[Rfam]
RNA sequence: AUCAGCGGGGAAAGAAGACCCUGUUGAGCUUGACUCUAGUUUGACAUUGUGAAAAGACAUGGAGGGUGUAGAAUAAGUGGGAGCUUCGGCGCCGGUGAAAUACCACUACCUCCAUUGUUUUUUUACUUACUGGGUGAAGGAGAGCUGGUCGCAGGACCAAGUUCUAGUUUUAUACAAUUUCUCCGUCCAAGACAUUGUCAGGUGGGGAGUUUGGCUGGGGCGGCACAUCUGUUAAACGAUAACGCAGGUGUCCUAAGGGGGGCUCAUGGAGAACAGAAAUCUCCAGUGGAACAAAAGGGUAAAAGCCCCCUUGAUUUUGAUUUUCAGUGUGAAUACAAACCAUGAAAGUGUGGCCUAUCGAUCCUUUAGUCCCUCGGAAUUUGAGGCUAGAGGUGCCAGAAAAGUUACCACAGGGAUAACUGGCUUGUGGCAGUCAAGCGUUCAUAGCGACAUUGCUUUUUGAUUCUUCGAUGUCGGCUCUUCCUAUCAUACCGAAGCAGAAUUCGGUAAGCGUUGGAUUGUUCACCCACUAAUAGGGAACGUGAGCUGGGUUUAGACCGUCGUGAGACAGGUUAGUUUUACCCUACUGAUGGACC
Numbered sequence: 001a002u003c004a005g006c007g008g009g010g011a012a013a014g015a016a017g018a019c020c021c022u023g024u025u026g027a028g029c030u031u032g033a034c035u036c037u038a039g040u041u042u043g044a045c046a047u048u049g050u051g052a053a054a055a056g057a058c059a060u061g062g063a064g065g066g067u068g069u070a071g072a073a074u075a076a077g078u079g080g081g082a083g084c085u086u087c088g089g090c091g092c093c094g095g096u097g098a099a100a101u102a103c104c105a106c107u108a109c110c111u112c113c114a115u116u117g118u119u120u121u122u123u124u125a126c127u128u129a130c131u132g133g134g135u136g137a138a139g140g141a142g143a144g145c146u147g148g149u150c151g152c153a154g155g156a157c158c159a160a161g162u163u164c165u166a167g168u169u170u171u172a173u174a175c176a177a178u179u180u181c182u183c184c185g186u187c188c189a190a191g192a193c194a195u196u197g198u199c200a201g202g203u204g205g206g207g208a209g210u211u212u213g214g215c216u217g218g219g220g221c222g223g224c225a226c227a228u229c230u231g232u233u234a235a236a237c238g239a240u241a242a243c244g245c246a247g248g249u250g251u252c253c254u255a256a257g258g259g260g261g262g263c264u265c266a267u268g269g270a271g272a273a274c275a276g277a278a279a280u281c282u283c284c285a286g287u288g289g290a291a292c293a294a295a296a297g298g299g300u301a302a303a304a305g306c307c308c309c310c311u312u313g314a315u316u317u318u319g320a321u322u323u324u325c326a327g328u329g330u331g332a333a334u335a336c337a338a339a340c341c342a343u344g345a346a347a348g349u350g351u352g353g354c355c356u357a358u359c360g361a362u363c364c365u366u367u368a369g370u371c372c373c374u375c376g377g378a379a380u381u382u383g384a385g386g387c388u389a390g391a392g393g394u395g396c397c398a399g400a401a402a403a404g405u406u407a408c409c410a411c412a413g414g415g416a417u418a419a420c421u422g423g424c425u426u427g428u429g430g431c432a433g434u435c436a437a438g439c440g441u442u443c444a445u446a447g448c449g450a451c452a453u454u455g456c457u458u459u460u461u462g463a464u465u466c467u468u469c470g471a472u473g474u475c476g477g478c479u480c481u482u483c484c485u486a487u488c489a490u491a492c493c494g495a496a497g498c499a500g501a502a503u504u505c506g507g508u509a510a511g512c513g514u515u516g517g518a519u520u521g522u523u524c525a526c527c528c529a530c531u532a533a534u535a536g537g538g539a540a541c542g543u544g545a546g547c548u549g550g551g552u553u554u555a556g557a558c559c560g561u562c563g564u565g566a567g568a569c570a571g572g573u574u575a576g577u578u579u580u581a582c583c584c585u586a587c588u589g590a591u592g593g594a595c596c
Stems, first nucleotide, its partner, number of pairs: 001591005008585003012580002020414004025410002027406005033210004040202007049126010059115007076107005083090002131189004140183004148157002213226001214224003227249006252353002258310006264290002267285006291300002315339003320334004341350003364392006372386004423464001425462001427461001429457006438448002475550001476548004480542001481539005488513001491508006515529003519525001556574004560569003
Dot-bracket structure: (((((..(((.((......((((.(((((((.((((...(((((((..(((((((((((((((((..........(((((..((....))............))))).))))))).))))))))))....((((.....((((....((......))......................))))..))))......)))))))....))))..((((.....))).)((((((...........))))))..((....((((((((.((((((.......))))))...))((......))....))))))....(((..((((.......))))..))).(((....))).))..........((((((..((((.......)))))))))).........)))))..))))))........(.(.(.((((((...((.......))...))))))...)).)..........(((((((((((..(..((((((......))))))....).(((.(.....).))).....)))))..)..)))).).....(((((((....))).))))....))..))).))))).....
A member of the RNA family "Eukaryotic large subunit ribosomal RNA" from Candidozyma haemuli, 596 nucleotides of a longer RNA. Pairs were carried over by alignment from the consensus structure, which is taken from published work.